The record is a 204-nucleotide RNA sequence from Actinomadura viridilutea, which matches "c-di-AMP riboswitch aptamer (ydaO/yuaA leader)" in Rfam.

RNA sequence: UUGGCCGAACCGCCGAGUCCCGUGGGGCCGCAUCCGCCGCCCCGCAGGAACCGGGGACCCGCGAUCGGACGGUUCCGGGACGACUCCAGAGCCAUGCCGACCUGGGGUGAAUCCGCACGGUGCGGACGCUCCGCACGUGCGCGGAAGGGCAGGCUCCGGCCCGAACCCGUCAGCUCACCCGGUAGGCGGACGAGGAGAGGAGAG
Numbered sequence: 001u002u003g004g005c006c007g008a009a010c011c012g013c014c015g016a017g018u019c020c021c022g023u024g025g026g027g028c029c030g031c032a033u034c035c036g037c038c039g040c041c042c043c044g045c046a047g048g049a050a051c052c053g054g055g056g057a058c059c060c061g062c063g064a065u066c067g068g069a070c071g072g073u074u075c076c077g078g079g080a081c082g083a084c085u086c087c088a089g090a091g092c093c094a095u096g097c098c099g100a101c102c103u104g105g106g107g108u109g110a111a112u113c114c115g116c117a118c119g120g121u122g123c124g125g126a127c128g129c130u131c132c133g134c135a136c137g138u139g140c141g142c143g144g145a146a147g148g149g150c151a152g153g154c155u156c157c158g159g160c161c162c163g164a165a166c167c168c169g170u171c172a173g174c175u176c177a178c179c180c181g182g183u184a185g186g187c188g189g190a191c192g193a194g195g196a197g198a199g200g201a202g203a204g
Stems, first nucleotide, its partner, number of pairs: 011188004018049003050183006060104002105168003113144004147162004
The pairing is the family consensus, mapped onto this sequence.
Rfam links the family to the GO terms cyclic-di-AMP binding and regulation of gene expression.